Rfam assigns this 568-nucleotide RNA from Trypanosoma theileri to the family "Trypanosomatid mitochondrial large subunit ribosomal RNA". Gene Ontology terms of the family: structural constituent of ribosome and ribosome. The match comes from Rfam's covariance-model search (523 bits). Its Rfam clan is "LSU clan".

[Rfam]
RNA sequence: UUUUAAGAGCGUUUAUUAAAUGCGUUCGUCUAAGAAUAUUAUUUAAGAUAAUUCUUGUAUAUAUAUUUAUUAUUUAAUAAUCCUAUAUAAAAAUAAACUUUCCUCAAUUUUAGCAUUUAAGUAGCAUAGUAAUUUGUUAACUGAUUAUUAAAGUGUUCCAUAGAAAUUUUUUAAAUCAAAACAAAAACAAUAAAUUAAGAAUUAAAAUAAAAAUUUUAAUAAAAAUUAAAAAAUUAAAAUAGGGCAAGUCCUACUCUCCUUUACAAAGAGAACAUCUUUUAAGUUAUAUGUAAUUGUAUGUUUGAUUGGGGCAAUACUAUACCUAUAUGUAUAGAAAAAGAACUAUAAUUAUUGAAAUAAUAAAAGGUUCGAGCAGGUUAACAAGCAUUAAUACUAAAUGUGUUUCAUCGUCUACUUAUUGCUGAAAAUUGAUUGUUCAUCAAGAUUGCAAUUCGUUAGUUGGGUUAAAAUCGUUGUAAAGCAGAUUUGUUUAUAUAUUUAAUUAUUGCACAUAGUAAAGAUUAAUGUUAGUACGCAAGGAUCAAUUAUUAGCUUGUAAAAAUAAUGA
Numbered sequence: 001u002u003u004u005a006a007g008a009g010c011g012u013u014u015a016u017u018a019a020a021u022g023c024g025u026u027c028g029u030c031u032a033a034g035a036a037u038a039u040u041a042u043u044u045a046a047g048a049u050a051a052u053u054c055u056u057g058u059a060u061a062u063a064u065a066u067u068u069a070u071u072a073u074u075u076a077a078u079a080a081u082c083c084u085a086u087a088u089a090a091a092a093a094u095a096a097a098c099u100u101u102c103c104u105c106a107a108u109u110u111u112a113g114c115a116u117u118u119a120a121g122u123a124g125c126a127u128a129g130u131a132a133u134u135u136g137u138u139a140a141c142u143g144a145u146u147a148u149u150a151a152a153g154u155g156u157u158c159c160a161u162a163g164a165a166a167u168u169u170u171u172u173a174a175a176u177c178a179a180a181a182c183a184a185a186a187a188c189a190a191u192a193a194a195u196u197a198a199g200a201a202u203u204a205a206a207a208u209a210a211a212a213a214u215u216u217u218a219a220u221a222a223a224a225a226u227u228a229a230a231a232a233a234u235u236a237a238a239a240u241a242g243g244g245c246a247a248g249u250c251c252u253a254c255u256c257u258c259c260u261u262u263a264c265a266a267a268g269a270g271a272a273c274a275u276c277u278u279u280u281a282a283g284u285u286a287u288a289u290g291u292a293a294u295u296g297u298a299u300g301u302u303u304g305a306u307u308g309g310g311g312c313a314a315u316a317c318u319a320u321a322c323c324u325a326u327a328u329g330u331a332u333a334g335a336a337a338a339a340g341a342a343c344u345a346u347a348a349u350u351a352u353u354g355a356a357a358u359a360a361u362a363a364a365a366g367g368u369u370c371g372a373g374c375a376g377g378u379u380a381a382c383a384a385g386c387a388u389u390a391a392u393a394c395u396a397a398a399u400g401u402g403u404u405u406c407a408u409c410g411u412c413u414a415c416u417u418a419u420u421g422c423u424g425a426a427a428a429u430u431g432a433u434u435g436u437u438c439a440u441c442a443a444g445a446u447u448g449c450a451a452u453u454c455g456u457u458a459g460u461u462g463g464g465u466u467a468a469a470a471u472c473g474u475u476g477u478a479a480a481g482c483a484g485a486u487u488u489g490u491u492u493a494u495a496u497a498u499u500u501a502a503u504u505a506u507u508g509c510a511c512a513u514a515g516u517a518a519a520g521a522u523u524a525a526u527g528u529u530a531g532u533a534c535g536c537a538a539g540g541a542u543c544a545a546u547u548a549u550u551a552g553c554u555u556g557u558a559a560a561a562a563u564a565a566u567g568a
Base pairs, nucleotide, nucleotide: 240253241252242251243250255485256484257483259481260480261479262478263477264476265475266474268472269471272291273290274289275288293315294314295313296312297311317334318333319332320331321330322329340370341369342368343367344366383405384404385403386402387401388400408463409462410461412459413458414457415455418452419451420450421449422448430439431438432437